[Rfam]
Rfam assigns this 73-nucleotide RNA from Phocaeicola vulgatus to the family "Bacteroidetes FopS (family of paralogous sRNAs)". From the family's description: The RNA-binding protein RbpB and BTncRNA_FopS sRNA are involved in the post-transcription regulation of polysaccharide utilisation loci (PUL). FopS sRNAs function as post-transcriptional repressors by binding to the vicinity of the start codon of the first mRNA of target PUL polycistrons, typically corresponding to the cognate SusC homolog, impeding translation of the respective glycan transporter. The match comes from Rfam's covariance-model search (77 bits).
RNA sequence: GUGUUUUUCAUGGUAUUAGAUUUAAGGUUAAUGAAGAUUGGGUGUCUGGGAUAGAUACCCUUCUUUUUUUAUA
Numbered sequence: 001g002u003g004u005u006u007u008u009c010a011u012g013g014u015a016u017u018a019g020a021u022u023u024a025a026g027g028u029u030a031a032u033g034a035a036g037a038u039u040g041g042g043u044g045u046c047u048g049g050g051a052u053a054g055a056u057a058c059c060c061u062u063c064u065u066u067u068u069u070u071a072u073a
Base pairs, nucleotide, nucleotide: 040060041059042058043057044056045055046054
Rfam classes the family as a small RNA.
The family's consensus secondary structure is taken from published work.
Rfam 15.1 lists 822 matches to the family in 178 species.